Record summary
The family of this 61-nucleotide sequence from Pseudomonas agarici is "Pseudomonas sRNA P36".
RNA sequence: AAAACUGUUACCCCAGUUUUUUCGCGUAACAAAAGCCGGGUCUAUCGGUAACGAAGAUCCG
Numbered sequence: 001a002a003a004a005c006u007g008u009u010a011c012c013c014c015a016g017u018u019u020u021u022u023c024g025c026g027u028a029a030c031a032a033a034a035g036c037c038g039g040g041u042c043u044a045u046c047g048g049u050a051a052c053g054a055a056g057a058u059c060c061g
Stems, first nucleotide, its partner, number of pairs: 006031006014024001016022001037061007045054003
Notes
By type it is a small RNA. It scores 45 bits against the family's covariance model.